This 123-nucleotide RNA from Manihot esculenta belongs to the Rfam family "Small nucleolar RNA SNORD14".
NCBI's taxonomy places the organism under Eukaryota, Embryophyta, Magnoliopsida, Mesangiospermae, Manihot.
It scores 73 bits against the family's covariance model.
For this family Rfam cites "An essential domain in Saccharomyces cerevisiae U14 snoRNA is absent in vertebrates, but conserved in other yeasts" (Samarsky et al., Nucleic Acids Res, 1996).
[Rfam]
RNA sequence: GAACAAUGAUGACAUAUUAAAGGCUUGUUUCUCAAAACAUUCGCAGUGGCCGCCUAAGAGCUUUCGCCUUAGCCAGGCUUGAGAGCUAAUGCUGCUUCACUACUUCCUUGGAUGUCUGAGACC
Numbered sequence: 001g002a003a004c005a006a007u008g009a010u011g012a013c014a015u016a017u018u019a020a021a022g023g024c025u026u027g028u029u030u031c032u033c034a035a036a037a038c039a040u041u042c043g044c045a046g047u048g049g050c051c052g053c054c055u056a057a058g059a060g061c062u063u064u065c066g067c068c069u070u071a072g073c074c075a076g077g078c079u080u081g082a083g084a085g086c087u088a089a090u091g092c093u094g095c096u097u098c099a100c101u102a103c104u105u106c107c108u109u110g111g112a113u114g115u116c117u118g119a120g121a122c123c
Base pairs, nucleotide, nucleotide: 001123004120060086061085062084063083064082065081
Its family is annotated with RNA processing and nucleolus in the Gene Ontology.